A member of the RNA family "5' ureB small RNA" from Beauveria bassiana, 294 nucleotides long. Gene Ontology term of the family: negative regulation of gene expression. On this family, see Wen et al., J Bacteriol 2013: "Helicobacter pylori 5'ureB-sRNA, a cis-encoded antisense small RNA, negatively regulates ureAB expression by transcription termination". The base pairs follow the family's consensus structure, which was predicted with mfold. It scores 84 bits against the family's covariance model.
[Rfam]
RNA sequence: CUCUUGCGCCUGCUGCGGACAAAUCAGGUGAAUAUGCGUAUCAAUCGCGCCGGCCGUGAUGAUUUUGUUCUCGCCCGCAAUCACAUCCGUGCAGCUACCCACGACCAUGUUGGGCGUCACGCCGUCCAUGACGUCCGGGUUGCCCGCCUUGCCUAUCCCGACAAUCAUGCCGUGUUUGACGCCGAUAUCCGCCUUGACUAUCCCCGUGUAGUCGACAAUCAGCGCAUUCGUAAUGACGAGAUCCAGCGACUCGGCGUCGGGCCGCCCCGUGGCCUGGCCCAUGCCCUCGCGGAG
Numbered sequence: 001c002u003c004u005u006g007c008g009c010c011u012g013c014u015g016c017g018g019a020c021a022a023a024u025c026a027g028g029u030g031a032a033u034a035u036g037c038g039u040a041u042c043a044a045u046c047g048c049g050c051c052g053g054c055c056g057u058g059a060u061g062a063u064u065u066u067g068u069u070c071u072c073g074c075c076c077g078c079a080a081u082c083a084c085a086u087c088c089g090u091g092c093a094g095c096u097a098c099c100c101a102c103g104a105c106c107a108u109g110u111u112g113g114g115c116g117u118c119a120c121g122c123c124g125u126c127c128a129u130g131a132c133g134u135c136c137g138g139g140u141u142g143c144c145c146g147c148c149u150u151g152c153c154u155a156u157c158c159c160g161a162c163a164a165u166c167a168u169g170c171c172g173u174g175u176u177u178g179a180c181g182c183c184g185a186u187a188u189c190c191g192c193c194u195u196g197a198c199u200a201u202c203c204c205c206g207u208g209u210a211g212u213c214g215a216c217a218a219u220c221a222g223c224g225c226a227u228u229c230g231u232a233a234u235g236a237c238g239a240g241a242u243c244c245a246g247c248g249a250c251u252c253g254g255c256g257u258c259g260g261g262c263c264g265c266c267c268c269g270u271g272g273c274c275u276g277g278c279c280c281a282u283g284c285c286c287u288c289g290c291g292g293a294g
Stems, first nucleotide, its partner, number of pairs: 001294003005291004011163002014160002017075002021071001029052002033049001038045002056068003077152001085149001088146002094143002097140004103135003108130002111128005116122001169278004175269001178266001180264002182261002191225002194222003205214002228259001230257001235252002